Lysine riboswitch aptamer: a 169-nucleotide RNA from Alkalibacterium sp. AK22.
RNA sequence: UUAACAGAUAGAGGCGCGAAGAAAAAGAGUACCGGUUUCGAGGAGGACAUCCGAAGACGAACCGGGAAAGGGUUCUUUGCCGAAGGGCGGUCCGUUGUCAGCGGACUGUUCUGGGCCCGUGUUUAAAAGGCAUGGGACUGUCACGAUUUCGUGGAGCACUAUCCUGAUC
Numbered sequence: 001u002u003a004a005c006a007g008a009u010a011g012a013g014g015c016g017c018g019a020a021g022a023a024a025a026a027g028a029g030u031a032c033c034g035g036u037u038u039c040g041a042g043g044a045g046g047a048c049a050u051c052c053g054a055a056g057a058c059g060a061a062c063c064g065g066g067a068a069a070g071g072g073u074u075c076u077u078u079g080c081c082g083a084a085g086g087g088c089g090g091u092c093c094g095u096u097g098u099c100a101g102c103g104g105a106c107u108g109u110u111c112u113g114g115g116c117c118c119g120u121g122u123u124u125a126a127a128a129g130g131c132a133u134g135g136g137a138c139u140g141u142c143a144c145g146a147u148u149u150c151g152u153g154g155a156g157c158a159c160u161a162u163c164c165u166g167a168u169c
Stems, first nucleotide, its partner, number of pairs: 007163005016080008032065007084112012113139002116136008141154005
Pairs were carried over by alignment from the consensus structure, which is taken from published work.